A member of the RNA family "mir-17 microRNA precursor family" from Takifugu rubripes, 80 nucleotides long. Rfam's curators put it in the seed alignment. The base pairs follow the family's consensus structure, which was predicted with RNAalifold. On this family, see Lagos-Quintana et al., Science 2001: "Identification of novel genes coding for small expressed RNAs". Its family is annotated with RISC complex and miRNA-mediated post-transcriptional gene silencing in the Gene Ontology.
RNA sequence: CUGUGUAUUGCCAAAGUGCUUACAGUGCAGGUAGUUCUAUGUGACACCUACUGCAAUGGAGGCACUUACAGCAGUACUCU
Numbered sequence: 001c002u003g004u005g006u007a008u009u010g011c012c013a014a015a016g017u018g019c020u021u022a023c024a025g026u027g028c029a030g031g032u033a034g035u036u037c038u039a040u041g042u043g044a045c046a047c048c049u050a051c052u053g054c055a056a057u058g059g060a061g062g063c064a065c066u067u068a069c070a071g072c073a074g075u076a077c078u079c080u
Base pairs, nucleotide, nucleotide: 005077006076007075008074010072011071014067015066016065017064018063019062020061021060023058024057026055027054028053030052031051032050033049034048